[Rfam]
RNA sequence: GAUGUGAAAUGUAAAAACACAAUUGGGUUGGUAGUCCCAAUGCAAAUGUAGUAUUUGUCAGUAACCUUCCUCCUCAGGUCGUCCUUCAUUUCAUAGAAAUCA
Numbered sequence: 001g002a003u004g005u006g007a008a009a010u011g012u013a014a015a016a017a018c019a020c021a022a023u024u025g026g027g028u029u030g031g032u033a034g035u036c037c038c039a040a041u042g043c044a045a046a047u048g049u050a051g052u053a054u055u056u057g058u059c060a061g062u063a064a065c066c067u068u069c070c071u072c073c074u075c076a077g078g079u080c081g082u083c084c085u086u087c088a089u090u091u092c093a094u095a096g097a098a099a100u101c102a
Stems, first nucleotide, its partner, number of pairs: 004094008022041006042058006069078003
This 102-nucleotide sequence from Staphylococcus saccharolyticus belongs to the Rfam family "azaaromatic riboswitch aptamer (yjdF RNA)". NCBI's taxonomy places the organism under Bacteria, Bacillota, Bacilli, Staphylococcaceae, Staphylococcus.